[Rfam]
RNA sequence: AGUCACAAGUUGAAAGCCACAGCAGAAGCACUCACGGUGUGGCCCUGUCAGAUUCCAGUGAAACUGUGAAUUCUACU
Numbered sequence: 001a002g003u004c005a006c007a008a009g010u011u012g013a014a015a016g017c018c019a020c021a022g023c024a025g026a027a028g029c030a031c032u033c034a035c036g037g038u039g040u041g042g043c044c045c046u047g048u049c050a051g052a053u054u055c056c057a058g059u060g061a062a063a064c065u066g067u068g069a070a071u072u073c074u075a076c077u
Stems, first nucleotide, its partner, number of pairs: 016043003021077002024074004028040003049066003053062003
RNA: Mammalian CPEB3 ribozyme